[Rfam]
RNA: L31-Actinobacteria ribosomal protein leader
RNA sequence: UCGGUCCCGGUUCACGAGCGGCUUCCCUGCCGCCGACCCGGUGCC
Numbered sequence: 001u002c003g004g005u006c007c008c009g010g011u012u013c014a015c016g017a018g019c020g021g022c023u024u025c026c027c028u029g030c031c032g033c034c035g036a037c038c039c040g041g042u043g044c045c
Stems, first nucleotide, its partner, number of pairs: 003045003007041004015035002019032004